[Rfam]
RNA sequence: CAGAAAUGGGAGUUCCUUGCAGCCCAAAGCACCAAGCAACAAGUAUACUGGUUUUGGACUGAAGGGAGCUCCUAGUUCUU
Numbered sequence: 001c002a003g004a005a006a007u008g009g010g011a012g013u014u015c016c017u018u019g020c021a022g023c024c025c026a027a028a029g030c031a032c033c034a035a036g037c038a039a040c041a042a043g044u045a046u047a048c049u050g051g052u053u054u055u056g057g058a059c060u061g062a063a064g065g066g067a068g069c070u071c072c073u074a075g076u077u078c079u080u
Base pairs, nucleotide, nucleotide: 007074008073009072010071011070012069013068014067015066016065017064018063021060022059024057025056026055027054028053
The family of this 80-nucleotide RNA from Lathyrus oleraceus is "MIR319 microRNA precursor family". The family's consensus secondary structure was predicted with RNAalifold.